[Rfam]
RNA sequence: UUUUAAAAUUUUCAUCCCUUUGUACUGAUAAAAGCUGACGAGACUGACAAAAUAACCAAACAAUGGCAUGUGACAUGUCACAUGUAUCUCAUUCUGAAUACAACAACCAGUUUUUAAUAGUAAAAAUGAGUGAAUUUUUUAAUA
Numbered sequence: 001u002u003u004u005a006a007a008a009u010u011u012u013c014a015u016c017c018c019u020u021u022g023u024a025c026u027g028a029u030a031a032a033a034g035c036u037g038a039c040g041a042g043a044c045u046g047a048c049a050a051a052a053u054a055a056c057c058a059a060a061c062a063a064u065g066g067c068a069u070g071u072g073a074c075a076u077g078u079c080a081c082a083u084g085u086a087u088c089u090c091a092u093u094c095u096g097a098a099u100a101c102a103a104c105a106a107c108c109a110g111u112u113u114u115u116a117a118u119a120g121u122a123a124a125a126a127u128g129a130g131u132g133a134a135u136u137u138u139u140u141a142a143u144a
Stems, first nucleotide, its partner, number of pairs: 003142006011134005019126003023122004029116005
The family of this 144-nucleotide RNA sequence from Gossypium barbadense is "MIR7502 microRNA precursor family". The base pairs follow the family's consensus structure, which was predicted with RNAalifold.